[Rfam]
Background: Rfam assigns this 78-nucleotide sequence from Desulfonema ishimotonii to the family "c-di-GMP-I-GGC riboswitch aptamer". A search with the family's covariance model found it, with a score of 70 bits. Taxonomically the source falls in Desulfonema (Bacteria, Pseudomonadati, Thermodesulfobacteriota, Desulfobacterales).
RNA sequence: UCAGAAAAAGCCAAACCCUCUGAAAGGGGGGGCGGAAAGCCACGGGUCUUAUAAAAAAAGACAGCCGGGUUGCCUUGC
Numbered sequence: 001u002c003a004g005a006a007a008a009a010g011c012c013a014a015a016c017c018c019u020c021u022g023a024a025a026g027g028g029g030g031g032g033c034g035g036a037a038a039g040c041c042a043c044g045g046g047u048c049u050u051a052u053a054a055a056a057a058a059a060g061a062c063a064g065c066c067g068g069g070u071u072g073c074c075u076u077g078c
Stems, first nucleotide, its partner, number of pairs: 003075002011035002016031006033064001038071004043067003046062003